[Rfam]
Notes
mir-26 microRNA precursor family: an 81-nucleotide RNA sequence from Zosterops borbonicus. Lineage of the source: Eukaryota > Amniota > Archosauria > Australaves > Zosterops. A search with the family's covariance model found it, with a score of 87 bits.
RNA sequence: CUAUGGCCUGGUUCAAGUAAUCCAGGAUAGGCUGUAUCCAUGCUAACUGGCCUAUUCUUGGUUACUUGCACUGGGACAUGG
Numbered sequence: 001c002u003a004u005g006g007c008c009u010g011g012u013u014c015a016a017g018u019a020a021u022c023c024a025g026g027a028u029a030g031g032c033u034g035u036a037u038c039c040a041u042g043c044u045a046a047c048u049g050g051c052c053u054a055u056u057c058u059u060g061g062u063u064a065c066u067u068g069c070a071c072u073g074g075g076a077c078a079u080g081g
Stems, first nucleotide, its partner, number of pairs: 002080004007075006014068009024058010
Gene Ontology terms of the family: miRNA-mediated post-transcriptional gene silencing and RISC complex. The family has 82 seed sequences and 2,251 matches in Rfam 15.1.